Makes More Granules Regulator RNA (mmgR): a 79-nucleotide sequence from Caulobacter vibrioides. From the family's description: SuhB later renamed mmgR (makes more granules regulator) was a putative non-coding RNA found multiple times in the Agrobacterium tumefaciens genome and related alpha-proteobacteria. Other non-coding RNAs uncovered in the same analysis include: speF, ybhL, metA, and serC.Several studies inSinorhizobium meliloti showed that suhB element is indeed a non-coding RNA:firstly it was detected on Northern blot and called Sm8RNA, secondly in an RNAseq study referred to as SmelC689.The mutant phenotype's (strain lacking the small RNA) cytoplasm contains higher content of polyhydroxybutyrate (PBH)storage granules than wild type strain. It is annotated as a small RNA. Gene Ontology terms of the family: response to nitrogen compound, DNA-templated transcription, termination and protein binding.
[Rfam]
RNA sequence: CGCCUCUGCCCUUCCUGGGCGUUUCCUCCCUAUGACUUUGUAGCCCGGUCUUCAUGGCCGGGCUUUCUUUUUGCGCGAU
Numbered sequence: 001c002g003c004c005u006c007u008g009c010c011c012u013u014c015c016u017g018g019g020c021g022u023u024u025c026c027u028c029c030c031u032a033u034g035a036c037u038u039u040g041u042a043g044c045c046c047g048g049u050c051u052u053c054a055u056g057g058c059c060g061g062g063c064u065u066u067c068u069u070u071u072u073g074c075g076c077g078a079u
Base pairs, nucleotide, nucleotide: 008020009019010018011017042064043063044062045061046060047059048058049057050056
The family is grouped with related families in Rfam's "suhB sRNA clan".